[Rfam]
RNA: Group II catalytic intron D1-D4-3
RNA sequence: UCCACCGUGAGGUGGAAUCUGAAGGAAGCUGGAGGCAAAUCUCCGACCCGAGGAACACGAAUCUCAUAAAAGGCUGUCCUUCUUGGGUGAGGCUGCAAAACAAGUCGAAGUCCGAGCGACCAAAGGGAAGGGCAGUAAAUGAGGCGGGUACAUGGAGAGGAAGUUUGUGCA
Dot-bracket structure: ((((((....)))))).............((...((...(((((((((((...........((((((.....(((.(((((((.((((..((((........))))...))))............))))))).)))..)))))))))))...))))))....))...))..